This 83-nucleotide RNA from Zoogloea oleivorans belongs to the Rfam family "SAH (S-adenosyl-L-homocysteine) riboswitch aptamer". On this family, see Wang et al., Mol Cell 2008: "Riboswitches that sense S-adenosylhomocysteine and activate genes involved in coenzyme recycling". Taxonomically the source falls in Zoogloea (Bacteria, Pseudomonadati, Pseudomonadota, Zoogloeaceae). Gene Ontology terms of the family: regulation of gene expression and S-adenosylhomocysteine metabolic process.
RNA sequence: CUUGUCGAGGGGCGUUGCGACCUGUUCAGCGGUAUCUUUGUGAAACAGGCCAGGCUCGGCAAUCACAACGGCGCUCGCAAACC
Number, nucleotide and partner (000 for none) at each position: 001c000002u062003u061004g060005u059006c058007g057008a056009g000010g000011g000012g000013c000014g000015u000016u000017g000018c000019g000020a000021c049022c048023u047024g046025u045026u044027c000028a000029g000030c000031g000032g000033u000034a000035u000036c000037u000038u000039u000040g000041u000042g000043a000044a026045a025046c024047a023048g022049g021050c000051c000052a000053g000054g000055c000056u008057c007058g006059g005060c004061a003062a002063u000064c000065a000066c000067a000068a000069c000070g000071g000072c000073g000074c000075u000076c000077g000078c000079a000080a000081a000082c000083c000